[Rfam]
RNA sequence: UACGACAAAAAUCGAUUCCUUCAUAUAUCCUUAGAAAUAAGGUCUAAGAGUCUCUACCGGGUUACCGUAAACAACCUGACUAUGAAGGCAGGAUAUCCGUUU
Numbered sequence: 001u002a003c004g005a006c007a008a009a010a011a012u013c014g015a016u017u018c019c020u021u022c023a024u025a026u027a028u029c030c031u032u033a034g035a036a037a038u039a040a041g042g043u044c045u046a047a048g049a050g051u052c053u054c055u056a057c058c059g060g061g062u063u064a065c066c067g068u069a070a071a072c073a074a075c076c077u078g079a080c081u082a083u084g085a086a087g088g089c090a091g092g093a094u095a096u097c098c099g100u101u102u
Base pairs, nucleotide, nucleotide: 018088019087020086021085022084023083024082025081030048031047032046033045034044035043058078059077060076061075062074063073
The family of this 102-nucleotide RNA from Texcoconibacillus texcoconensis is "Purine riboswitch aptamer". The organism belongs to Texcoconibacillus, within Bacteria. The base pairs follow the family's consensus structure, which is taken from published work.